[Rfam]
RNA sequence: AAGCAUGUGAGUGCUUGUGUGAAGGAAGCCGACGGCAAAGUCCCGAGCCAACGAACAGAAACCGGAUACAAGGCCGGUUGACAGGAUGAGUCCGCGAAAAAGUGACGAAAUCCAACCGCGAAGUCAACAGGUAAAUCCAGUGGCCGCAUGGGAUGAAAGUUAUUGCC
Number, nucleotide and partner (000 for none) at each position: 001a016002a015003g014004c013005a012006u011007g000008u000009g000010a000011g006012u005013g004014c003015u002016u001017g000018u000019g000020u000021g000022a000023a000024g000025g000026a000027a000028g167029c000030c165031g164032a163033c000034g000035g160036c159037a000038a000039a000040g154041u153042c152043c151044c150045g149046a000047g144048c143049c142050a141051a000052c000053g000054a000055a000056c000057a000058g000059a000060a000061a000062c140063c000064g138065g137066a136067u135068a000069c000070a000071a000072g000073g132074c131075c130076g000077g128078u127079u126080g125081a124082c123083a000084g113085g112086a111087u110088g000089a000090g106091u105092c104093c102094g000095c000096g000097a000098a000099a000100a000101a000102g093103u000104g092105a091106c090107g000108a000109a000110a087111u086112c085113c084114a000115a000116c000117c000118g000119c000120g000121a000122a000123g082124u081125c080126a079127a078128c077129a000130g075131g074132u073133a000134a000135a067136u066137c065138c064139a000140g062141u050142g049143g048144c047145c000146g000147c000148a000149u045150g044151g043152g042153a041154u040155g000156a000157a000158a000159g036160u035161u000162a000163u032164u031165g030166c000167c028

A member of the RNA family "Group II catalytic intron D1-D4-3" from Sphaerochaeta globosa, 167 nucleotides long. The organism belongs to Sphaerochaeta globosa, within Bacteria.